[Rfam]
The record is a 72-nucleotide RNA from Danionella cerebrum, which matches "Small nucleolar RNA SNORD2" in Rfam. The family's RNA type in Rfam is C/D-box small nucleolar RNA. A search with the family's covariance model found it, with a score of 48 bits. Its family is annotated with RNA processing and nucleolus in the Gene Ontology.
RNA sequence: GUAUGAGAUGAUGCUGUUCAUCUUUCGGGACUGAAUCCUCCUGUGGAAACUCUUUAUCAUUACUGAUCGUAC
Numbered sequence: 001g002u003a004u005g006a007g008a009u010g011a012u013g014c015u016g017u018u019c020a021u022c023u024u025u026c027g028g029g030a031c032u033g034a035a036u037c038c039u040c041c042u043g044u045g046g047a048a049a050c051u052c053u054u055u056a057u058c059a060u061u062a063c064u065g066a067u068c069g070u071a072c
Base pairs, nucleotide, nucleotide: 001072002071003070004069005068006067